[Rfam]
RNA: Small nucleolar RNA SNORA77
RNA sequence: GCAGACUCACUCUGCACCCAGCUGCAGUCCCAGGCGGGUGCUUUUUCAGUCUGCUAAAAAAAACAUUCCAGGAGCUGUGGCUGCCUGAAUCUGUCAGGGACAGUGCAGCUGCCUGGGGACACAGGG
Number, nucleotide and partner (000 for none) at each position: 001g054002c053003a052004g051005a050006c049007u000008c000009a000010c000011u000012c000013u000014g041015c040016a039017c038018c037019c036020a000021g000022c033023u032024g031025c000026a000027g000028u000029c000030c000031c024032a023033g022034g000035c000036g019037g018038g017039u016040g015041c014042u000043u000044u000045u000046u000047c000048a000049g006050u005051c004052u003053g002054c001055u000056a000057a000058a000059a000060a000061a000062a000063a000064c000065a000066u000067u117068c116069c115070a114071g113072g112073a000074g109075c108076u107077g106078u105079g104080g000081c000082u102083g101084c000085c099086u098087g000088a000089a000090u000091c000092u000093g000094u000095c000096a000097g000098g086099g085100a000101c083102a082103g000104u079105g078106c077107a076108g075109c074110u000111g000112c072113c071114u070115g069116g068117g067118g000119a000120c000121a000122c000123a000124g000125g000126g000